[Rfam]
FMN riboswitch aptamer (RFN element): a 153-nucleotide RNA sequence from Humidesulfovibrio mexicanus. The match comes from Rfam's covariance-model search (102 bits). The organism belongs to Humidesulfovibrio, within Bacteria.
RNA sequence: GCUUGUUCUCAGGGCGGGGUGCAAUUCCCCACCGGCGGUAUCCUGAAGCGAUUCAGGCAGCCCGCGAGCGCCCGCUCCAUCGGGGAGCGGGGUCAGCAGAUUCCGGUGAGAGGCCGGAGCCGACGGUGACAGUCCGGAUGGAAGAGAAUGAGG
Numbered sequence: 001g002c003u004u005g006u007u008c009u010c011a012g013g014g015c016g017g018g019g020u021g022c023a024a025u026u027c028c029c030c031a032c033c034g035g036c037g038g039u040a041u042c043c044u045g046a047a048g049c050g051a052u053u054c055a056g057g058c059a060g061c062c063c064g065c066g067a068g069c070g071c072c073c074g075c076u077c078c079a080u081c082g083g084g085g086a087g088c089g090g091g092g093u094c095a096g097c098a099g100a101u102u103c104c105g106g107u108g109a110g111a112g113g114c115c116g117g118a119g120c121c122g123a124c125g126g127u128g129a130c131a132g133u134c135c136g137g138a139u140g141g142a143a144g145a146g147a148a149u150g151a152g153g
Stems, first nucleotide, its partner, number of pairs: 003151008017029003031133002033122002035065004060120002068097002102118005124136003

The literature on the family includes a 2002 paper in Nucleic Acids Res by Vitreschak et al., "Regulation of riboflavin biosynthesis and transport genes in bacteria by transcriptional and translational attenuation". Pairs were carried over by alignment from the consensus structure, which is taken from published work.